[Rfam]
A member of the RNA family "c-di-GMP-I riboswitch aptamer" from Psychromonas sp. psych-6C06, 85 nucleotides long. Rfam's curators write: GEMM was predicted in a large-scale screen for bacterial structured RNA regulatory elements. A search with the family's covariance model found it, with a score of 70 bits. Pairs were carried over by alignment from the consensus structure, which is taken from published work. Its family is annotated with cyclic-di-GMP binding in the Gene Ontology.
RNA sequence: GCUAGAAAAAGGCAAGUUAAGGGAAACCUUAAUACGCAAAGCCACCGGCCUGUCGACAACUGUCUAUGGUAGCGGAGUUACCGAG
Numbered sequence: 001g002c003u004a005g006a007a008a009a010a011g012g013c014a015a016g017u018u019a020a021g022g023g024a025a026a027c028c029u030u031a032a033u034a035c036g037c038a039a040a041g042c043c044a045c046c047g048g049c050c051u052g053u054c055g056a057c058a059a060c061u062g063u064c065u066a067u068g069g070u071a072g073c074g075g076a077g078u079u080a081c082c083g084a085g
Stems, first nucleotide, its partner, number of pairs: 012037002017032006040079003045075003048070003055064003